[Rfam]
RNA sequence: CCCAAGGCUGACGCCCUUGGGCUAAGUUAUGGCAUGCCUUCGGCAUU
Numbered sequence: 001c002c003c004a005a006g007g008c009u010g011a012c013g014c015c016c017u018u019g020g021g022c023u024a025a026g027u028u029a030u031g032g033c034a035u036g037c038c039u040u041c042g043g044c045a046u047u
Stems, first nucleotide, its partner, number of pairs: 001021006007014002034046005
RNA: Acido-Lenti-1 RNA
Organism: Lentisphaera araneosa